[Rfam]
RNA: GRIK4 3 prime UTR element
Organism: Aplosporella prunicola
RNA sequence: UAGUCCUCGCAGUCUCCGUACGCGUAGAGACUGCGCGCAAGGACAAGGGCGGGCAGCGCACCGGCGCAAGCCGGGGCCUGGACG
Number, nucleotide and partner (000 for none) at each position: 001u000002a000003g044004u043005c042006c041007u040008c000009g000010c000011a032012g031013u030014c029015u000016c000017c000018g000019u000020a000021c000022g000023c000024g000025u000026a000027g000028a000029g014030a013031c012032u011033g000034c000035g000036c000037g000038c000039a000040a007041g006042g005043a004044c003045a000046a000047g000048g000049g000050c000051g000052g000053g000054c000055a000056g000057c000058g000059c000060a000061c000062c000063g000064g000065c000066g000067c000068a000069a000070g000071c000072c000073g000074g000075g000076g000077c000078c000079u000080g000081g000082a000083c000084g000